[Rfam]
Nucleotides: 069
Base pairs, nucleotide, nucleotide: 014025016024029065030064031063032059033058037054039052041050043048
Number, partner (000 for none) and nucleotide at each position: 001000c002000u003000u004000g005000a006000c007000c008000g009000c010000g011000c012000c013000g014025a015000g016024c017000a018000g019000c020000a021000g022000c023000g024016g025014u026000g027000u028000c029065c030064g031063c032059c033058g034000g035000u036000c037054c038000c039052g040000c041050c042000c043048g044000u045000a046000g047000g048043u049000c050041g051000c052039c053000a054037g055000c056000a057000g058033u059032g060000c061000c062000u063031g064030c065029g066000c067000c068000u069000c